[Rfam]
RNA sequence: GUAGUCAUUUACAUGUGUUGGUGUUUCUGUUAUUAAAUAUUAGAUAUUUAGGAUUUGCCACCUACGUAGAUGCUUAGAAUCUUUUGUUUAGUAUCUAAAGGGGCUAGACAAUUCAAGUAACGCUCGCUUGGGC
Numbered sequence: 001g002u003a004g005u006c007a008u009u010u011a012c013a014u015g016u017g018u019u020g021g022u023g024u025u026u027c028u029g030u031u032a033u034u035a036a037a038u039a040u041u042a043g044a045u046a047u048u049u050a051g052g053a054u055u056u057g058c059c060a061c062c063u064a065c066g067u068a069g070a071u072g073c074u075u076a077g078a079a080u081c082u083u084u085u086g087u088u089u090a091g092u093a094u095c096u097a098a099a100g101g102g103g104c105u106a107g108a109c110a111a112u113u114c115a116a117g118u119a120a121c122g123c124u125c126g127c128u129u130g131g132g133c
Stems, first nucleotide, its partner, number of pairs: 003074002006072005019060005026053003036048004088107005094101001

A member of the RNA family "purD RNA motif" from Helicobacter sp. MIT 14-3879, 133 nucleotides long. It is annotated as a cis-regulatory element. NCBI's taxonomy places the organism under Bacteria, Campylobacterota, Epsilonproteobacteria, Campylobacterales, Helicobacter.